Shown here is an 87-nucleotide sequence from Eptatretus burgeri, a member of the family "Plastid-psbM 3UTR RNA".
RNA sequence: GAUCCGAUAGUAUGGUAGAAAGAAAGAUUCAUAUAUUUCUUUCUACCAUACUCUAUUAGGCUUAUUGUAGUGUAUAAAGUUGGACAG
Numbered sequence: 001g002a003u004c005c006g007a008u009a010g011u012a013u014g015g016u017a018g019a020a021a022g023a024a025a026g027a028u029u030c031a032u033a034u035a036u037u038u039c040u041u042u043c044u045a046c047c048a049u050a051c052u053c054u055a056u057u058a059g060g061c062u063u064a065u066u067g068u069a070g071u072g073u074a075u076a077a078a079g080u081u082g083g084a085c086a087g
Stems, first nucleotide, its partner, number of pairs: 006053001009052017
The match comes from Rfam's covariance-model search (74 bits). Rfam 15.1 lists 627 matches to the family in 337 species. From the family's description: Plastid psbM is a non-coding RNA (ncRNA) recognised in plastids. By type it is a cis-regulatory element.